Ribosomal protein L19 leader: a 39-nucleotide RNA sequence from Salibacterium salarium.
It is annotated as a cis-regulatory leader.
Rfam's curators write: This family is a putative r-protein leader autoregulatory structure found in B. subtilis and other low-GC Gram-positive bacteria.
NCBI's taxonomy places the organism under Bacteria, Bacillati, Bacillota, Caryophanales, Salibacterium.
On this family, see Zengel and Lindahl, Prog Nucleic Acid Res Mol Biol 1994: "Diverse mechanisms for regulating ribosomal protein synthesis in Escherichia coli".
[Rfam]
Nucleotides: 039
Base pairs, nucleotide, nucleotide: 003037004036005035006034007033008032009031013029014028015026016025017024
Number, partner (000 for none) and nucleotide at each position: 001000a002000c003037g004036a005035u006034g007033u008032u009031c010000c011000g012000c013029u014028g015026c016025a017024g018000g019000g020000u021000a022000u023000a024017c025016u026015g027000u028014c029013a030000a031009g032008a033007g034006c035005a036004u037003u038000u039000g